Rfam assigns this 127-nucleotide RNA from Musa acuminata to the family "Small nucleolar RNA snoR111".
Its family is annotated with RNA processing and nucleolus in the Gene Ontology.
RNA sequence: GCUAAGAGGGAACGCAUCUCUUCGGUAGCGUCCUCCUCGAUCAGAAGGCAGAGGCAAAAAGACGAGUCGAGAUAUCGUUUCAGUCGCCACUCCACCCGUUGGCGGUUCGAUUGUUGCUCGACCACAC
Numbered sequence: 001g002c003u004a005a006g007a008g009g010g011a012a013c014g015c016a017u018c019u020c021u022u023c024g025g026u027a028g029c030g031u032c033c034u035c036c037u038c039g040a041u042c043a044g045a046a047g048g049c050a051g052a053g054g055c056a057a058a059a060a061g062a063c064g065a066g067u068c069g070a071g072a073u074a075u076c077g078u079u080u081c082a083g084u085c086g087c088c089a090c091u092c093c094a095c096c097c098g099u100u101g102g103c104g105g106u107u108c109g110a111u112u113g114u115u116g117c118u119c120g121a122c123c124a125c126a127c
Base pairs, nucleotide, nucleotide: 006038007037008036009035010034012031013030014029015028066122068120069119070118071117074111075110076109077108083106084105085104086103087102088101089100092098
For this family Rfam cites "Experimental RNomics: identification of 140 candidates for small non-messenger RNAs in the plant Arabidopsis thaliana" (Marker et al., Curr Biol, 2002). Rfam classes the family as an H/ACA-box small nucleolar RNA. The match comes from Rfam's covariance-model search (62 bits). NCBI's taxonomy places the organism under Eukaryota, Streptophyta, Streptophytina, Embryophyta, Musa acuminata.